[Rfam]
RNA sequence: GCUGGACCAAAUUAAAAUGCUAGUCUGUCAUUGUAAGAGUUCAUAUGGGCACUGACAGAAUCGCAUUUUAAUUUUGUCAAGU
Numbered sequence: 001g002c003u004g005g006a007c008c009a010a011a012u013u014a015a016a017a018u019g020c021u022a023g024u025c026u027g028u029c030a031u032u033g034u035a036a037g038a039g040u041u042c043a044u045a046u047g048g049g050c051a052c053u054g055a056c057a058g059a060a061u062c063g064c065a066u067u068u069u070a071a072u073u074u075u076g077u078c079a080a081g082u
Base pairs, nucleotide, nucleotide: 001082002081003080005078006077007076009074010073012071013070014069015068016067017066018065019064020063022061024059025058026057027056028055029054030053032051033050034049036046038044
mir-3660 microRNA precursor family: an 82-nucleotide RNA sequence from Phascolarctos cinereus. A search with the family's covariance model found it, with a score of 80 bits. Gene Ontology terms of the family: miRNA-mediated post-transcriptional gene silencing and RISC complex. The organism belongs to Phascolarctos, within Eukaryota.